[Rfam]
RNA sequence: UCAGAUCUCCAUCGUAUCUUACGGUAAAGAGAAGCCGGCCGUACUGGGCCACGACGAAGCCGCUUAUGCGAAAAACCGUCGUGCGGUACUGGUUUACUAAUCUCUCAGAUAUCUGAAGAUCCCGGGUUGCGCCUGCCGGCGCAGCCCGGAUAUAACGGAUAAAGUAAAGCAGGUAAAGCAUGAGCAGUAAUUUCAGACAUCGUUUUUUG
Numbered sequence: 001u002c003a004g005a006u007c008u009c010c011a012u013c014g015u016a017u018c019u020u021a022c023g024g025u026a027a028a029g030a031g032a033a034g035c036c037g038g039c040c041g042u043a044c045u046g047g048g049c050c051a052c053g054a055c056g057a058a059g060c061c062g063c064u065u066a067u068g069c070g071a072a073a074a075a076c077c078g079u080c081g082u083g084c085g086g087u088a089c090u091g092g093u094u095u096a097c098u099a100a101u102c103u104c105u106c107a108g109a110u111a112u113c114u115g116a117a118g119a120u121c122c123c124g125g126g127u128u129g130c131g132c133c134u135g136c137c138g139g140c141g142c143a144g145c146c147c148g149g150a151u152a153u154a155a156c157g158g159a160u161a162a163a164g165u166a167a168a169g170c171a172g173g174u175a176a177a178g179c180a181u182g183a184g185c186a187g188u189a190a191u192u193u194c195a196g197a198c199a200u201c202g203u204u205u206u207u208u209g
Stems, first nucleotide, its partner, number of pairs: 001047004007041001014035002017032004054208001057205003062200001065197001067195002075188002078185001079183006087175004
A member of the RNA family "CpoB/ybgF ICR thermometer" from Enterobacillus tribolii, 209 nucleotides long. It scores 109 bits against the family's covariance model. It is annotated as an RNA thermoregulator. Gene Ontology terms of the family: regulation of translation and response to temperature stimulus. For this family Rfam cites "Temperature-responsive in vitro RNA structurome of Yersinia pseudotuberculosis" (Righetti et al., Proc Natl Acad Sci U S A, 2016). The pairing is the family consensus, mapped onto this sequence. Imprinting control region from upstream of cpoB/ybgF (tol/pal system protein).